A member of the RNA family "Small nucleolar RNA snoR109" from Helianthus annuus, 88 nucleotides long.
For this family Rfam cites "Experimental RNomics: identification of 140 candidates for small non-messenger RNAs in the plant Arabidopsis thaliana" (Marker et al., Curr Biol, 2002).
NCBI's taxonomy places the organism under Eukaryota, Tracheophyta, Mesangiospermae, asterids, Helianthus.
Pairs were carried over by alignment from the consensus structure, which was predicted with WAR.

[Rfam]
RNA sequence: CGGCUGUAGCUAAAUGAAUUUAGAAGUUUUACUGGCCGGUUGUCGUUAAUUUUAGUCGAUAAAUCUGCUUACCGAACUUCAUACAUCU
Numbered sequence: 001c002g003g004c005u006g007u008a009g010c011u012a013a014a015u016g017a018a019u020u021u022a023g024a025a026g027u028u029u030u031a032c033u034g035g036c037c038g039g040u041u042g043u044c045g046u047u048a049a050u051u052u053u054a055g056u057c058g059a060u061a062a063a064u065c066u067g068c069u070u071a072c073c074g075a076a077c078u079u080c081a082u083a084c085a086u087c088u
Stems, first nucleotide, its partner, number of pairs: 023080006034069003038065004042060004

Rfam 15.1 lists 680 matches to the family in 220 species.